[Rfam]
RNA sequence: UUGCUCUUGUCGGAGUGCCUAAGGGCUGAGACCGUUUAUUCGGGAUCCGUUGAACCUGAUCGAGUUAAUACUCGCGAAGGAAACAAGCAUGAUUUUGAU
Numbered sequence: 001u002u003g004c005u006c007u008u009g010u011c012g013g014a015g016u017g018c019c020u021a022a023g024g025g026c027u028g029a030g031a032c033c034g035u036u037u038a039u040u041c042g043g044g045a046u047c048c049g050u051u052g053a054a055c056c057u058g059a060u061c062g063a064g065u066u067a068a069u070a071c072u073c074g075c076g077a078a079g080g081a082a083a084c085a086a087g088c089a090u091g092a093u094u095u096u097g098a099u
Base pairs, nucleotide, nucleotide: 006087007086008085009084010083011049012048013047014046016043017026018025019024033042034041055080056079057078061074062073063072064071
RNA: TPP riboswitch aptamer (THI element)
Organism: Alteromonadaceae bacterium M269